[Rfam]
The record is a 32-nucleotide RNA sequence from Kordia sp. SMS9, which matches "DUF805b RNA" in Rfam. NCBI's taxonomy places the organism under Bacteria, Pseudomonadati, Bacteroidota, Flavobacteriia, Kordia. Pairs were carried over by alignment from the consensus structure, which is taken from published work.
Nucleotides: 032
Stems, first nucleotide, its partner, number of pairs: 003020003010031003
Number, partner (000 for none) and nucleotide at each position: 001000a002000u003020a004019g005018c006000g007000c008000a009000c010031g011030c012029c013000g014000a015000a016000a017000a018005g019004c020003u021000a022000a023000a024000g025000a026000g027000u028000a029012g030011g031010c032000a